[Rfam]
RNA sequence: GCGCCCUUCGUCUAGAGGCCUAGGACACCACCCUUUCACGGUGGCUACAGGGGUUCGAAUCCCCUAGGGCGUA
Dot-bracket structure: (((((((..((((.........)))).(((((.......)))))....(((((.......)))))))))))).
Numbered sequence: 001g002c003g004c005c006c007u008u009c010g011u012c013u014a015g016a017g018g019c020c021u022a023g024g025a026c027a028c029c030a031c032c033c034u035u036u037c038a039c040g041g042u043g044g045c046u047a048c049a050g051g052g053g054u055u056c057g058a059a060u061c062c063c064c065u066a067g068g069g070c071g072u073a
Stems, first nucleotide, its partner, number of pairs: 001072007010026004028044005049065005